[Rfam]
RNA sequence: CCGGGGGCUCACGCCCCCGGCUAGAAGAAUUUCGCCGCUCCGCGGCU
Numbered sequence: 001c002c003g004g005g006g007g008c009u010c011a012c013g014c015c016c017c018c019g020g021c022u023a024g025a026a027g028a029a030u031u032u033c034g035c036c037g038c039u040c041c042g043c044g045g046c047u
Stems, first nucleotide, its partner, number of pairs: 001020008034046005

Shown here is a 47-nucleotide sequence from a Pirellulaceae bacterium, a member of the family "Acido-Lenti-1 RNA". The source organism's lineage runs through Bacteria, Pseudomonadati, Planctomycetota, Pirellulales and Pirellulaceae. Pairs were carried over by alignment from the consensus structure, which is taken from published work. Rfam classes the family as a small RNA.